[Rfam]
Nucleotides: 119
Base pairs, nucleotide, nucleotide: 012037013036017032018031019030020029021028022027040113041112042111043110045109046108047107048104049103050102055098056097057096
Number, partner (000 for none) and nucleotide at each position: 001000c002000c003000c004000a005000g006000a007000u008000a009000a010000a011000g012037g013036c014000a015000a016000a017032c018031u019030a020029u021028u022027u023000g024000a025000a026000a027022a028021a029020a030019u031018a032017g033000g034000a035000c036013g037012c038000a039000a040113a041112a042111c043110c044000a045109c046108a047107g048104g049103u050102c051000u052000a053000a054000g055098g056097u057096g058000a059000c060000a061000u062000u063000g064000g065000a066000a067000u068000c069000a070000u071000a072000c073000a074000u075000a076000u077000g078000u079000a080000u081000u082000a083000u084000g085000g086000g087000c088000a089000a090000c091000u092000u093000u094000u095000g096057c097056g098055c099000u100000a101000u102050g103049a104048u105000g106000g107047c108046u109045g110043g111042g112041u113040u114000u115000c116000c117000u118000g119000g
The family of this 119-nucleotide RNA from Bacillus salinus is "c-di-GMP-I riboswitch aptamer". It scores 70 bits against the family's covariance model. Taxonomically the source falls in Bacillus (Bacteria, Bacillati, Bacillota, Bacillaceae). Pairs were carried over by alignment from the consensus structure, which is taken from published work. GEMM was predicted in a large-scale screen for bacterial structured RNA regulatory elements.